Molybdenum/Tungsten riboswitch aptamer (Moco RNA motif): a 133-nucleotide RNA sequence from Desulfitobacterium hafniense.
RNA sequence: CUUCAUAAUGAUCUCCGAGCCGGAGCAACCUAAAGAGUCAUCCAUGGUUGGUCGGCCAGGGCUGUACGCCCUCGGGGUAUAUCCAGAAAUGGCUAUGCCUUCACGUUUGAGAAGGAGGUGGAUUCCCAAUAUG
Numbered sequence: 001c002u003u004c005a006u007a008a009u010g011a012u013c014u015c016c017g018a019g020c021c022g023g024a025g026c027a028a029c030c031u032a033a034a035g036a037g038u039c040a041u042c043c044a045u046g047g048u049u050g051g052u053c054g055g056c057c058a059g060g061g062c063u064g065u066a067c068g069c070c071c072u073c074g075g076g077g078u079a080u081a082u083c084c085a086g087a088a089a090u091g092g093c094u095a096u097g098c099c100u101u102c103a104c105g106u107u108u109g110a111g112a113a114g115g116a117g118g119u120g121g122a123u124u125c126c127c128a129a130u131a132u133g
Base pairs, nucleotide, nucleotide: 011119012118013117014116015115016114019056020055021054022053023052026050027049028048029047030046035042036041058072059071060070061069062068075100076099077098078097079096080095081094083092084091085090101110102109

The literature on the family includes a 2007 paper in Nucleic Acids Res by Weinberg et al., "Identification of 22 candidate structured RNAs in bacteria using the CMfinder comparative genomics pipeline".